[Rfam]
Record summary:
This 132-nucleotide RNA from Serratia sp. DD3 belongs to the Rfam family "RtT RNA". This family represents a bacterial cis-regulatory element known as RtT RNA. The exact function of RtT is unknown although it is thought that it may be involved in changing the cellular response in relation to amino acid starvation. Rfam links the family to the GO term cellular response to amino acid starvation. It is annotated as a cis-regulatory element. The literature on the family includes a 1991 paper in Nucleic Acids Res by Bosl and Kersten, "A novel RNA product of the tyrT operon of Escherichia coli". Pairs were carried over by alignment from the consensus structure, which is taken from published work.
RNA sequence: UAGCUCAGUCGGUGGAGCAGUUGACUUUUAAUCAAUUGCUCGCAGGUCCGAGCCGAGCGAAGCGAGACGACAACGCGCAGCGUUGCCCGCAGGGUGAGGACGAAGGACGAAUCAAUCCUGCACCACCCAAUG
Numbered sequence: 001u002a003g004c005u006c007a008g009u010c011g012g013u014g015g016a017g018c019a020g021u022u023g024a025c026u027u028u029u030a031a032u033c034a035a036u037u038g039c040u041c042g043c044a045g046g047u048c049c050g051a052g053c054c055g056a057g058c059g060a061a062g063c064g065a066g067a068c069g070a071c072a073a074c075g076c077g078c079a080g081c082g083u084u085g086c087c088c089g090c091a092g093g094g095u096g097a098g099g100a101c102g103a104a105g106g107a108c109g110a111a112u113c114a115a116u117c118c119u120g121c122a123c124c125a126c127c128c129a130a131u132g
Base pairs, nucleotide, nucleotide: 015123017121018120019119020118022115037096038095040094041093047091049089050088054064055063071085072084073083074082075081076080